Rfam assigns this 204-nucleotide RNA from Castor canadensis to the family "Small nucleolar RNA SNORA73 family".
Rfam's curators write: U17 (SNORA73A and SNORA73B) also known as E1 belongs to the H/ACA class of small nucleolar RNAs (snoRNAs). Vertebrate U17 is intron-encoded and ranges in length from 200-230 nucleotides, longer than most snoRNAs. It is one of the most abundant snoRNAs in human cells and is essential for the cleavage of pre-rRNA within the 5' external transcribed spacer (ETS). This cleavage leads to the formation of 18S rRNA. Regions of the U17 RNA are complementary to rRNA and act as guides for RNA/RNA interactions, although these regions do not seem to be well conserved between organisms.
A reference for the family is Enright et al. (1996), "5'ETS rRNA processing facilitated by four small RNAs: U14, E3, U17, and U3", RNA.
Taxonomically the source falls in Castor (Eukaryota, Tetrapoda, Eutheria, Castoridae).
It is annotated as an H/ACA-box small nucleolar RNA.
Its Rfam clan is "snR30-U17 clan".
RNA sequence: CCAAUGUGGAUACUCUGGGAGGUCACUCCCCCUGGGCUCUGUCCAGGUGGCAUAUAGGAGCUUAGGGCUCGGCCCCAGAGUGUGUAGUCCCUUCUCACAAUGUUGGAAAGAAGCUGGGCCUUGAGACUGUGACUCCAUAUUCCGAUGACUUCUCAAGAGUCCUUUGGGCAGUGACUGAGGAGGCAAACCAAGCAGGAAACAAUG
Numbered sequence: 001c002c003a004a005u006g007u008g009g010a011u012a013c014u015c016u017g018g019g020a021g022g023u024c025a026c027u028c029c030c031c032c033u034g035g036g037c038u039c040u041g042u043c044c045a046g047g048u049g050g051c052a053u054a055u056a057g058g059a060g061c062u063u064a065g066g067g068c069u070c071g072g073c074c075c076c077a078g079a080g081u082g083u084g085u086a087g088u089c090c091c092u093u094c095u096c097a098c099a100a101u102g103u104u105g106g107a108a109a110g111a112a113g114c115u116g117g118g119c120c121u122u123g124a125g126a127c128u129g130u131g132a133c134u135c136c137a138u139a140u141u142c143c144g145a146u147g148a149c150u151u152c153u154c155a156a157g158a159g160u161c162c163u164u165u166g167g168g169c170a171g172u173g174a175c176u177g178a179g180g181a182g183g184c185a186a187a188c189c190a191a192g193c194a195g196g197a198a199a200c201a202a203u204g
Base pairs, nucleotide, nucleotide: 001106002105003104004103005102006101007100008044009043010042011041012040014036015035016034018029019028020027021026047098048097049096050095057090058089059088060085063082064081133195134194136192138190149182150181151180152179153178154177159169160168161167162166